[Rfam]
RNA: mir-172 microRNA precursor family
RNA sequence: GUUUUUGCGGAUGGAGCAUCAUCAAGAUUCACACAACUUUUUGAGGGCUUCAUGUGGAGUGGUUGUCAUAGUGAUGGUGGCUUUUGUGGUCCCUUCCCUGCACUCCAAUGGCCCUUUGAUAUGGGAAUCUUGAUGAUGCUGCAGCGGCAAUAAA
Numbered sequence: 001g002u003u004u005u006u007g008c009g010g011a012u013g014g015a016g017c018a019u020c021a022u023c024a025a026g027a028u029u030c031a032c033a034c035a036a037c038u039u040u041u042u043g044a045g046g047g048c049u050u051c052a053u054g055u056g057g058a059g060u061g062g063u064u065g066u067c068a069u070a071g072u073g074a075u076g077g078u079g080g081c082u083u084u085u086g087u088g089g090u091c092c093c094u095u096c097c098c099u100g101c102a103c104u105c106c107a108a109u110g111g112c113c114c115u116u117u118g119a120u121a122u123g124g125g126a127a128u129c130u131u132g133a134u135g136a137u138g139c140u141g142c143a144g145c146g147g148c149a150a151u152a153a154a
Stems, first nucleotide, its partner, number of pairs: 010145001012143002015140016032123002